[Rfam]
RNA sequence: GUUACAAUAAGACUACAAAAGAAUUGAAGC
Dot-bracket structure: ....((((..............))))....
Numbered sequence: 001g002u003u004a005c006a007a008u009a010a011g012a013c014u015a016c017a018a019a020a021g022a023a024u025u026g027a028a029g030c
Stems, first nucleotide, its partner, number of pairs: 005026004
Shown here is a 30-nucleotide sequence from Pyrococcus furiosus, a member of the family "CRISPR RNA direct repeat element". It scores 41 bits against the family's covariance model. The source organism's lineage runs through Archaea, Methanobacteriati, Methanobacteriota, Thermococcaceae and Pyrococcus furiosus. Rfam links the family to the GO term defense response. The base pairs follow the family's consensus structure, which was predicted with WAR.